RNA sequence: CUUGAGGGAGCCCAGCCACAGCGGCCGCCCCUUGGGCCGGCCCUGCCCGUACGUGGCGAUGAUCGCCUGCGCUUC
Numbered sequence: 001c002u003u004g005a006g007g008g009a010g011c012c013c014a015g016c017c018a019c020a021g022c023g024g025c026c027g028c029c030c031c032u033u034g035g036g037c038c039g040g041c042c043c044u045g046c047c048c049g050u051a052c053g054u055g056g057c058g059a060u061g062a063u064c065g066c067c068u069g070c071g072c073u074u075c
Base pairs, nucleotide, nucleotide: 015025016024017023031071033069038065039064044059047056048055049054

Source information
The family of this 75-nucleotide sequence from Streptomyces yokosukanensis is "ASpks TB sRNA". The match comes from Rfam's covariance-model search (71 bits). The family has 77 seed sequences and 9,052 matches in Rfam 15.1. The literature on the family includes a 2009 paper in Mol Microbiol by Arnvig and Young, "Identification of small RNAs in Mycobacterium tuberculosis". Rfam classes the family as an antisense RNA.